[Rfam]
RNA: Purine riboswitch aptamer
Organism: Bacillus aquiflavi
RNA sequence: AAUUUCAUAUUUUUACUCUCUCAUAUAAUGGCGGGGAUUGGCUCGCGAGUUUCUACCAGAUUACCGUAAUAAUCUGACUAUGAGUGAGCAAAACGUCUUU
Numbered sequence: 001a002a003u004u005u006c007a008u009a010u011u012u013u014u015a016c017u018c019u020c021u022c023a024u025a026u027a028a029u030g031g032c033g034g035g036g037a038u039u040g041g042c043u044c045g046c047g048a049g050u051u052u053c054u055a056c057c058a059g060a061u062u063a064c065c066g067u068a069a070u071a072a073u074c075u076g077a078c079u080a081u082g083a084g085u086g087a088g089c090a091a092a093a094c095g096u097c098u099u100u
Base pairs, nucleotide, nucleotide: 018086020084021083022082023081024080025079029048031046032045033044034043035042057076058075059074060073061072062071063070